Flavo-1 RNA: a 77-nucleotide sequence from Arenibacter nanhaiticus.
Nucleotides: 077
Base pairs, nucleotide, nucleotide: 006069007068008067010065011064015060016059020055021054022053026050027049028048029047031045032044033043034042035041036040
Number, partner (000 for none) and nucleotide at each position: 001000c002000g003000u004000u005000a006069g007068c008067u009000a010065u011064u012000g013000c014000a015060g016059c017000g018000g019000c020055a021054u022053c023000c024000u025000u026050u027049u028048u029047u030000g031045g032044u033043g034042g035041g036040c037000g038000c039000a040036g041035c042034c043033c044032g045031c046000g047029a048028a049027a050026a051000a052000a053022g054021a055020u056000a057000c058000a059016g060015c061000g062000g063000a064011a065010a066000g067008a068007g069006c070000g071000a072000c073000c074000c075000g076000a077000u
The family's RNA type in Rfam is small RNA.